The record is a 293-nucleotide sequence from Pseudomonas kuykendallii, which matches "anti ponA RNA" in Rfam. A reference for the family is Ferrara et al. (2012), "Comparative profiling of Pseudomonas aeruginosa strains reveals differential expression of novel unique and conserved small RNAs", PLoS One. NCBI's taxonomy places the organism under Bacteria, Pseudomonadati, Gammaproteobacteria, Pseudomonadales, Pseudomonas. Rfam links the family to the GO term response to antibiotic. Rfam's curators write: Transcribed antisense to the penicillin-binding protein 1A gene called ponA. It was identified by RNAseq and the expression was validated by 5' and 3' RACE experiments. AsponA expression was up or down regulated under different antibiotic stress. Due to its location it may be able to prevent the transcription or translation of the opposite gene. Study by Wurtzel et al. and Ferrara et al. also detected its expression. A search with the family's covariance model found it, with a score of 192 bits. By type it is an antisense RNA.
RNA sequence: AAAGUUGUCAUCCUCGGCGGAUAAGAGGGCCUGGAUGAAGUCCUUGGGGAUGUCGGCGAACUGGAUGGGGGUACGUCGCAUCUCGCCAAAUUCGGCGAUCAGCUUCUCGUCGCUGCUGUACACACGCAGCGGAAUCUGCAGUUGGAUGCUGCGCAGUGAGUCCACGGAAGGGAGGGUUGGGCUCAGAUAAAGAAAGGCGCCACUGAGACCAAGCAAAAGGCCACAGAAAACGGCUACGCAAGACCACCAGAAGAAUUUCAGCAGGCGUAUCAAAUGCUUGGUUUUCCAGAUAA
Number, nucleotide and partner (000 for none) at each position: 001a000002a000003a000004g000005u000006u000007g000008u000009c000010a000011u171012c170013c000014u168015c167016g000017g165018c000019g163020g162021a161022u000023a000024a000025g045026a044027g043028g042029g041030c040031c000032u000033g000034g000035a000036u000037g000038a000039a000040g030041u029042c028043c027044u026045u025046g000047g084048g083049g082050a081051u080052g079053u000054c078055g077056g000057c075058g074059a000060a000061c070062u069063g000064g000065a000066u000067g000068g000069g062070g061071g000072u000073a000074c058075g057076u000077c055078g054079c052080a051081u050082c049083u048084c047085g000086c095087c094088a000089a000090a000091u000092u000093c000094g087095g086096c000097g000098a000099u000100c000101a000102g000103c158104u000105u155106c000107u153108c148109g147110u146111c145112g000113c000114u000115g142116c141117u140118g139119u138120a137121c000122a135123c000124a000125c131126g130127c000128a000129g000130c126131g125132g000133a000134a000135u122136c000137u120138g119139c118140a117141g116142u115143u000144g000145g111146a110147u109148g108149c000150u000151g000152c000153g107154c000155a105156g000157u000158g103159a000160g000161u021162c020163c019164a000165c017166g000167g015168a014169a000170g012171g011172g000173a000174g000175g000176g000177u288178u000179g286180g285181g284182c000183u000184c281185a000186g000187a000188u000189a000190a000191a000192g000193a000194a000195a000196g000197g268198c267199g266200c265201c264202a000203c261204u260205g259206a258207g257208a000209c000210c000211a000212a000213g239214c238215a000216a000217a235218a000219g000220g000221c232222c000223a000224c000225a000226g000227a000228a000229a000230a000231c000232g221233g000234c000235u217236a000237c000238g214239c213240a000241a000242g000243a000244c253245c000246a000247c000248c000249a000250g000251a000252a000253g244254a000255a000256u000257u207258u206259c205260a204261g203262c000263a000264g201265g200266c199267g198268u197269a000270u000271c000272a000273a000274a000275u000276g000277c000278u000279u000280g000281g184282u000283u000284u181285u180286c179287c000288a177289g000290a000291u000292a000293a000